[Rfam]
RNA: mir-2944 microRNA precursor family
Organism: Aedes aegypti
RNA sequence: AUCGAAGGAACUCCCGGUGUGAUAUAUGACUCGAUUAUAUCACAGCAGUAGUUACCUGAUAU
Numbered sequence: 001a002u003c004g005a006a007g008g009a010a011c012u013c014c015c016g017g018u019g020u021g022a023u024a025u026a027u028g029a030c031u032c033g034a035u036u037a038u039a040u041c042a043c044a045g046c047a048g049u050a051g052u053u054a055c056c057u058g059a060u061a062u
Base pairs, nucleotide, nucleotide: 001062002061006057007056008055009053010052011051012050014048016046018044019043020042021041022040023039024038025037026036
Dot-bracket structure: ((...(((((((.(.(.(((((((((.........))))))))).).).)))).)))...))